[Rfam]
The record is a 370-nucleotide RNA from Rousettus aegyptiacus, which matches "ncRNA Repressor of NFAT (nuclear factor of activated T cells)" in Rfam. It is annotated as a non-coding RNA gene. The literature on the family includes a 2005 paper in Science by Willingham et al., "A strategy for probing the function of noncoding RNAs finds a repressor of NFAT". A search with the family's covariance model found it, with a score of 441 bits.
RNA sequence: GGGAGCAAAUGGCGUCGGGAACUUUGAAACUUUCCUUUGUAUAUUACAUUAAUCCACAUAAGAAAAUCUCUUUUAAUGAGGAGUGAUGUAGUUACAAACUCUCCAGAGCCAUAAUUAGAGCAAACUAAUUGAAGUUGUGUUUUGACACACUUUCCAGAUUCGCGGGCGCCGGAUGACAUAUUCACAACACUGCCGCCGCACAGCCAUGGCGACGGCAAAAUCAUUAGGCUGAUAACGCUUGUUUGCAUGCUGAUCAUGCCGGCAGCUCUCCCUUAAAUACUGCUUCUGCUACUGCUCCUUUGCCGUGAGUUUCCACUGGAAGGUAUUAGCAGUCAUUAUUAGUGCUUUAGUGGAAUUUUAACGUUAAAGA
Numbered sequence: 001g002g003g004a005g006c007a008a009a010u011g012g013c014g015u016c017g018g019g020a021a022c023u024u025u026g027a028a029a030c031u032u033u034c035c036u037u038u039g040u041a042u043a044u045u046a047c048a049u050u051a052a053u054c055c056a057c058a059u060a061a062g063a064a065a066a067u068c069u070c071u072u073u074u075a076a077u078g079a080g081g082a083g084u085g086a087u088g089u090a091g092u093u094a095c096a097a098a099c100u101c102u103c104c105a106g107a108g109c110c111a112u113a114a115u116u117a118g119a120g121c122a123a124a125c126u127a128a129u130u131g132a133a134g135u136u137g138u139g140u141u142u143u144g145a146c147a148c149a150c151u152u153u154c155c156a157g158a159u160u161c162g163c164g165g166g167c168g169c170c171g172g173a174u175g176a177c178a179u180a181u182u183c184a185c186a187a188c189a190c191u192g193c194c195g196c197c198g199c200a201c202a203g204c205c206a207u208g209g210c211g212a213c214g215g216c217a218a219a220a221u222c223a224u225u226a227g228g229c230u231g232a233u234a235a236c237g238c239u240u241g242u243u244u245g246c247a248u249g250c251u252g253a254u255c256a257u258g259c260c261g262g263c264a265g266c267u268c269u270c271c272c273u274u275a276a277a278u279a280c281u282g283c284u285u286c287u288g289c290u291a292c293u294g295c296u297c298c299u300u301u302g303c304c305g306u307g308a309g310u311u312u313c314c315a316c317u318g319g320a321a322g323g324u325a326u327u328a329g330c331a332g333u334c335a336u337u338a339u340u341a342g343u344g345c346u347u348u349a350g351u352g353g354a355a356u357u358u359u360a361a362c363g364u365u366a367a368a369g370a
Stems, first nucleotide, its partner, number of pairs: 047363001049361003053354005060347003068083006088339005094333002099108003118297005131153004136149005164272003168266002194211005214260004228246002231243004